[Rfam]
RNA sequence: GUAAAUAUAAUUUAAUGGUAAAAUGUAUGUUUUUAGGUGCAUAUUAUCUAAGUUCAAAUCUUAGUAUUUACA
Numbered sequence: 001g002u003a004a005a006u007a008u009a010a011u012u013u014a015a016u017g018g019u020a021a022a023a024u025g026u027a028u029g030u031u032u033u034u035a036g037g038u039g040c041a042u043a044u045u046a047u048c049u050a051a052g053u054u055c056a057a058a059u060c061u062u063a064g065u066a067u068u069u070a071c072a
Stems, first nucleotide, its partner, number of pairs: 001071007010024004026043005048064005
Dot-bracket structure: (((((((..((((.......)))).(((((........)))))....(((((.......)))))))))))).
RNA: tRNA